[Rfam]
RNA: RT-2 RNA
Organism: Lachnospiraceae bacterium 10-1
RNA sequence: AACGAUCCGACAAAGUACGCUGUAAAAGGCAGAAAUCUGUAUCAGGUAGAGGAAGGAGUGGAUGACCGUCACUUUGAAAAAAGUGUAAAUGACCUUGCCGCCUCUCAUGUGCUCAGAGAGGUGGUUUUUGCUUGUUUUGGGUGGGUGUACGCUGCUUGCAUGGUGCAGAAAUCGGAAGGGAGCUGAAAAGAAGGUGCAGAGGUGCAUUUCAUACCCAUACCAUUAUGCGGUUAGGGGCACAAAUACCGUACAAGGAGGAGAUGGGCACAAUUUUAUAUG
Number, nucleotide and partner (000 for none) at each position: 001a000002a000003c000004g043005a042006u041007c000008c000009g000010a000011c000012a000013a000014a000015g000016u000017a000018c000019g030020c029021u000022g000023u000024a000025a000026a000027a000028g000029g020030c019031a000032g000033a000034a000035a000036u000037c000038u000039g000040u000041a006042u005043c004044a000045g000046g000047u000048a000049g000050a000051g000052g000053a000054a000055g000056g000057a000058g000059u000060g000061g000062a000063u000064g000065a000066c000067c000068g000069u000070c000071a000072c000073u000074u000075u000076g000077a000078a000079a000080a000081a000082a000083g000084u000085g000086u000087a000088a000089a000090u000091g000092a000093c000094c000095u000096u000097g000098c000099c000100g000101c000102c000103u000104c000105u000106c000107a000108u000109g000110u000111g000112c000113u000114c000115a000116g000117a000118g000119a000120g000121g000122u000123g000124g000125u000126u000127u259128u258129u256130g000131c254132u253133u252134g251135u000136u250137u000138u222139g221140g220141g000142u217143g216144g215145g214146u213147g000148u000149a000150c000151g159152c158153u000154g000155c000156u000157u000158g152159c151160a000161u000162g208163g207164u206165g205166c204167a203168g000169a000170a000171a000172u000173c000174g000175g000176a000177a000178g000179g000180g000181a000182g000183c000184u000185g000186a000187a000188a000189a000190g000191a000192a000193g000194g000195u000196g000197c000198a000199g000200a000201g000202g000203u167204g166205c165206a164207u163208u162209u000210c000211a000212u000213a146214c145215c144216c143217a142218u000219a000220c140221c139222a138223u000224u000225a000226u000227g249228c248229g247230g246231u245232u000233a244234g000235g000236g000237g000238c000239a000240c000241a000242a000243a000244u233245a231246c230247c229248g228249u227250a136251c134252a133253a132254g131255g000256a129257g000258g128259a127260g000261a000262u000263g000264g000265g000266c000267a000268c000269a000270a000271u000272u000273u000274u000275a000276u000277a000278u000279g000